[Rfam]
RNA sequence: AUUGUGAGAACCUUUUGAAUCAUUGUAGUACUUGAUUCAAAAGGUUCUUGCUC
Numbered sequence: 001a002u003u004g005u006g007a008g009a010a011c012c013u014u015u016u017g018a019a020u021c022a023u024u025g026u027a028g029u030a031c032u033u034g035a036u037u038c039a040a041a042a043g044g045u046u047c048u049u050g051c052u053c
Stems, first nucleotide, its partner, number of pairs: 004051019
The family of this 53-nucleotide RNA from Microthlaspi erraticum is "Plastid-ccsA-ndhD-2 3UTR RNA". On this family, see Richter et al., Plant Commun 2023: "Retrograde signaling in plants: A critical review focusing on the GUN pathway and beyond". NCBI's taxonomy places the organism under Eukaryota, Streptophytina, Euphyllophyta, eudicotyledons, Microthlaspi. The family has 421 seed sequences and 875 matches in Rfam 15.1.